Source information: The record is a 165-nucleotide RNA from Vagococcus humatus, which matches "M-box riboswitch aptamer (ykoK leader)" in Rfam. The pairing is the family consensus, mapped onto this sequence.

[Rfam]
RNA sequence: AAAUAAAUCUGUUAGGUGAGGCUCCUAUAUAGAAAUACGCUACUGCCCAAAAAUGUCGAGAGACGCCAAUGGGUCAACUGAAAUUGUCGAACAAGGCUUUUUCUAAUGUAGCUGACCAAUUUGUCUAAGCUAUAUAGUGCUAAAACUCGACGUAGAGAUUAACUU
Numbered sequence: 001a002a003a004u005a006a007a008u009c010u011g012u013u014a015g016g017u018g019a020g021g022c023u024c025c026u027a028u029a030u031a032g033a034a035a036u037a038c039g040c041u042a043c044u045g046c047c048c049a050a051a052a053a054u055g056u057c058g059a060g061a062g063a064c065g066c067c068a069a070u071g072g073g074u075c076a077a078c079u080g081a082a083a084u085u086g087u088c089g090a091a092c093a094a095g096g097c098u099u100u101u102u103c104u105a106a107u108g109u110a111g112c113u114g115a116c117c118a119a120u121u122u123g124u125c126u127a128a129g130c131u132a133u134a135u136a137g138u139g140c141u142a143a144a145a146c147u148c149g150a151c152g153u154a155g156a157g158a159u160u161a162a163c164u165u
Stems, first nucleotide, its partner, number of pairs: 006160005011151002013094001015147003020141003025137008039112005045074005054065004080103004086097003114125003
M-box riboswitch, also know as ykoK leader is described as a metaloregulatory RNA that sense divalent metals and function as a genetic control element of genes related to divalent metal transport in bacteria. NCBI's taxonomy places the organism under Bacteria, Bacillati, Bacilli, Lactobacillales, Vagococcus. Rfam links the family to the GO terms response to magnesium ion and regulation of gene expression. A search with the family's covariance model found it, with a score of 152 bits.